[Rfam]
RNA sequence: UGUGGGCGCCUGAUGGGCGCCCACACCACCUACCCCGGUACCUGACACGGCCGGAGAGG
Numbered sequence: 001u002g003u004g005g006g007c008g009c010c011u012g013a014u015g016g017g018c019g020c021c022c023a024c025a026c027c028a029c030c031u032a033c034c035c036c037g038g039u040a041c042c043u044g045a046c047a048c049g050g051c052c053g054g055a056g057a058g059g
Stems, first nucleotide, its partner, number of pairs: 001025009029059003033056001035054005
This 59-nucleotide RNA sequence from Nocardioides baekrokdamisoli belongs to the Rfam family "L17-Actino-Proteobacteria ribosomal protein leader". The family's consensus secondary structure is taken from published work. Taxonomically the source falls in Nocardioides (Bacteria, Bacillati, Actinomycetes, Propionibacteriales).